[Rfam]
Notes
A member of the RNA family "Group II catalytic intron D1-D4-7" from Alicyclobacillaceae bacterium I2511, 127 nucleotides long. Rfam links the family to the GO term Group II intron splicing. The match comes from Rfam's covariance-model search (58 bits). On this family, see Bonen and Vogel, Trends Genet 2001: "The ins and outs of group II introns". Lineage of the source: Bacteria > Bacillati > Bacillota > Caryophanales > Alicyclobacillaceae. Group II introns are found in rRNA, tRNA and mRNA of organelles in fungi, plants and protists, and also in mRNA in bacteria.

RNA sequence: CUCUCUGAACUGCGAGAGCGAACCUACCGCGACGUGGGAUGGUGGUAAUACCGUCUUACGGAGCUCGCGGGACAACGUAGCCGCGCUGGUUAAGGUGAAUUCCAGCCAGAGCUAGGUUGUGAAGUGC
Numbered sequence: 001c002u003c004u005c006u007g008a009a010c011u012g013c014g015a016g017a018g019c020g021a022a023c024c025u026a027c028c029g030c031g032a033c034g035u036g037g038g039a040u041g042g043u044g045g046u047a048a049u050a051c052c053g054u055c056u057u058a059c060g061g062a063g064c065u066c067g068c069g070g071g072a073c074a075a076c077g078u079a080g081c082c083g084c085g086c087u088g089g090u091u092a093a094g095g096u097g098a099a100u101u102c103c104a105g106c107c108a109g110a111g112c113u114a115g116g117u118u119g120u121g122a123a124g125u126g127c
Stems, first nucleotide, its partner, number of pairs: 003018004028069005033060012084097004103119005